[Rfam]
RNA sequence: GAUGACCGGCCAGGCACUCGCGUGCCCGGCCAACAAGUGGAGGCUCCGAUCUCCCACCUGACUGUCCUCACGGACGGCGGGUCACCCCCGGUCAGGCGGUUGCCAUCGUUCCGUACGGACGAUGGAGUCGCCCGAAAGCGCGCCCCGCGAUCAUCGCGGCGGUGCUCCGGCAGUGCUUUGGAGCCCCGUCUUGUGAUCGUCCGGGGCAUUUUUU
Numbered sequence: 001g002a003u004g005a006c007c008g009g010c011c012a013g014g015c016a017c018u019c020g021c022g023u024g025c026c027c028g029g030c031c032a033a034c035a036a037g038u039g040g041a042g043g044c045u046c047c048g049a050u051c052u053c054c055c056a057c058c059u060g061a062c063u064g065u066c067c068u069c070a071c072g073g074a075c076g077g078c079g080g081g082u083c084a085c086c087c088c089c090g091g092u093c094a095g096g097c098g099g100u101u102g103c104c105a106u107c108g109u110u111c112c113g114u115a116c117g118g119a120c121g122a123u124g125g126a127g128u129c130g131c132c133c134g135a136a137a138g139c140g141c142g143c144c145c146c147g148c149g150a151u152c153a154u155c156g157c158g159g160c161g162g163u164g165c166u167c168c169g170g171c172a173g174u175g176c177u178u179u180g181g182a183g184c185c186c187c188g189u190c191u192u193g194u195g196a197u198c199g200u201c202c203g204g205g206g207c208a209u210u211u212u213u214u
Base pairs, nucleotide, nucleotide: 004093005092006091007090008089009088013026028083029082030081031080034060035059037057038056039055040054041052042051062077063076064075065074066073067072095132096131097130099129101126103125104124105123106122107121108120109119110118142207143206144205145204146203147202148199149198150197155195156194157193158190159189160188161187162186164184165183166182167181168180
Streptomyces RNA 1601: a 214-nucleotide sequence from Streptomyces sp. 3213.3. Identified by deep sequencing of transcriptome at the end of exponential growth phase. Appears longer on northern blot than sequencing transcript. Streptomyces specific. The family's RNA type in Rfam is small RNA. Lineage of the source: Bacteria > Bacillati > Actinomycetota > Streptomycetaceae > Streptomyces. The literature on the family includes a 2011 paper in RNA Biol by Vockenhuber et al., "Deep sequencing-based identification of small non-coding RNAs in Streptomyces coelicolor".